[Rfam]
RNA sequence: CUUCACCGACCCCAGCCACAACGGCCGCUCCCGAUCCUGGCCAUACGUCGCCAGCAGCGCUUCCGCCUC
Numbered sequence: 001c002u003u004c005a006c007c008g009a010c011c012c013c014a015g016c017c018a019c020a021a022c023g024g025c026c027g028c029u030c031c032c033g034a035u036c037c038u039g040g041c042c043a044u045a046c047g048u049c050g051c052c053a054g055c056a057g058c059g060c061u062u063c064c065g066c067c068u069c
Stems, first nucleotide, its partner, number of pairs: 015025003031065001032059002037054003041050001043048001
A member of the RNA family "ASpks TB sRNA" from Microbispora oryzae, 69 nucleotides long. The match comes from Rfam's covariance-model search (72 bits).